[Rfam]
The family of this 191-nucleotide RNA sequence from Caenorhabditis japonica is "Caenorhabditis snoRNA ceN104".
On this family, see Jia et al., BMC Mol Biol 2007: "Systematic identification of non-coding RNA 2,2,7-trimethylguanosine cap structures in Caenorhabditis elegans".
Rfam classes the family as an H/ACA-box small nucleolar RNA.
The family's consensus secondary structure was predicted with RNAalifold.
NCBI's taxonomy places the organism under Eukaryota, Opisthokonta, Metazoa, Protostomia, Caenorhabditis.

RNA sequence: ACGCAGUUCCUUAUUGCCGCUGAGAUGUAAAAAUGGCACUAUUUUGAGUCAUUUUUUUUUCAUUUCUGCUAUAUACACUGGUAGCUUUUUUUUUGUUAUCAGUGUUCUGGAACUGCAAUACAAGCUUAGCUCGAGAUGCGUGUACUGGUUUGCCUUUUUGCGAUCUGGUUCCUUUUCUCCUCGGGACAAUU
Number, nucleotide and partner (000 for none) at each position: 001a000002c000003g116004c115005a114006g113007u112008u111009c000010c000011u000012u000013a000014u000015u073016g072017c000018c000019g069020c068021u000022g000023a000024g000025a000026u000027g000028u000029a000030a000031a000032a000033a000034u000035g000036g000037c000038a000039c000040u000041a000042u000043u000044u000045u000046g000047a000048g000049u000050c000051a000052u000053u000054u000055u000056u000057u000058u000059u000060u000061c000062a000063u000064u000065u000066c000067u000068g020069c019070u000071a000072u016073a015074u000075a000076c104077a103078c102079u101080g000081g099082u098083a097084g096085c095086u000087u000088u000089u000090u000091u000092u000093u000094u000095g085096u084097u083098a082099u081100c000101a079102g078103u077104g076105u000106u000107c000108u000109g000110g000111a008112a007113c006114u005115g004116c003117a000118a000119u000120a000121c000122a000123a000124g000125c000126u000127u000128a000129g000130c185131u184132c183133g182134a181135g180136a000137u000138g177139c000140g000141u000142g000143u000144a169145c168146u167147g166148g165149u000150u163151u162152g161153c160154c000155u000156u000157u000158u000159u000160g153161c152162g151163a150164u000165c148166u147167g146168g145169u144170u000171c000172c000173u000174u000175u000176u000177c138178u000179c000180c135181u134182c133183g132184g131185g130186a000187c000188a000189a000190u000191u000